[Rfam]
Source information: Rfam assigns this 105-nucleotide RNA to the family "Mitochondrial DNA control region secondary structure A". It is one of the family's seed sequences.
RNA sequence: GUAUUCUAUGGGGUGCAAGCUUUAAAUGCAACUUAAGUACUAAUUUAUUUUAGCACACCCUUAUGUAAAUCGUGCAUUACUGCUAGCCAACAUGAAUAUUAUAUA
Numbered sequence: 001g002u003a004u005u006c007u008a009u010g011g012g013g014u015g016c017a018a019g020c021u022u023u024a025a026a027u028g029c030a031a032c033u034u035a036a037g038u039a040c041u042a043a044u045u046u047a048u049u050u051u052a053g054c055a056c057a058c059c060c061u062u063a064u065g066u067a068a069a070u071c072g073u074g075c076a077u078u079a080c081u082g083c084u085a086g087c088c089a090a091c092a093u094g095a096a097u098a099u100u101a102u103a104u105a
Stems, first nucleotide, its partner, number of pairs: 005096001007094004011088002015083002018081002022036004027031001037058002040053004063077005
It is annotated as an antisense RNA. Rfam 15.1 lists 795 matches to the family in 62 species.